Record summary
The family of this 112-nucleotide sequence from Streptosporangium subroseum is "TPP riboswitch aptamer (THI element)". Rfam's curators write: Vitamin B(1) in its active form thiamin pyrophosphate (TPP) is an essential coenzyme that is synthesised by coupling of pyrimidine and thiazole moieties in bacteria.
RNA sequence: ACCAACCGACGCGGGAGCUUGGGGCAACCAGGCUGAGAGGGCAGCUACAGCUGCUGCCGACCGCAUGAACCUGUCCGGGUAAUGCCGGCGUAGGGAGCGUUAAUGACGCCUG
Numbered sequence: 001a002c003c004a005a006c007c008g009a010c011g012c013g014g015g016a017g018c019u020u021g022g023g024g025c026a027a028c029c030a031g032g033c034u035g036a037g038a039g040g041g042c043a044g045c046u047a048c049a050g051c052u053g054c055u056g057c058c059g060a061c062c063g064c065a066u067g068a069a070c071c072u073g074u075c076c077g078g079g080u081a082a083u084g085c086c087g088g089c090g091u092a093g094g095g096a097g098c099g100u101u102a103a104u105g106a107c108g109c110c111u112g
Stems, first nucleotide, its partner, number of pairs: 008101003011064004017033005040058005070094004075088004
It scores 58 bits against the family's covariance model.
Rfam links the family to the GO term thiamine pyrophosphate binding.